[Rfam]
This 102-nucleotide sequence from Caenorhabditis nigoni belongs to the Rfam family "mir-36 microRNA precursor family". Rfam links the family to the GO terms RISC complex and miRNA-mediated post-transcriptional gene silencing. Pairs were carried over by alignment from the consensus structure, which was predicted with WAR. On this family, see Ohler et al., RNA 2004: "Patterns of flanking sequence conservation and a characteristic upstream motif for microRNA gene identification".
RNA sequence: UCCGAAAGUCUGGGUCGGACCUCAGCCAAUUUUUGUCGCGGUGAUAUUCCGAAGACACUGGUUAUCACCGGGUAAAAACUGGUAGAGGUCUGAUCCAUUCAU
Numbered sequence: 001u002c003c004g005a006a007a008g009u010c011u012g013g014g015u016c017g018g019a020c021c022u023c024a025g026c027c028a029a030u031u032u033u034u035g036u037c038g039c040g041g042u043g044a045u046a047u048u049c050c051g052a053a054g055a056c057a058c059u060g061g062u063u064a065u066c067a068c069c070g071g072g073u074a075a076a077a078a079c080u081g082g083u084a085g086a087g088g089u090c091u092g093a094u095c096c097a098u099u100c101a102u
Base pairs, nucleotide, nucleotide: 016092017091018090019089020088021087022086025083026082027081028080030078031077032076033075034074035073036072037071039070041068042067043066044065045064046063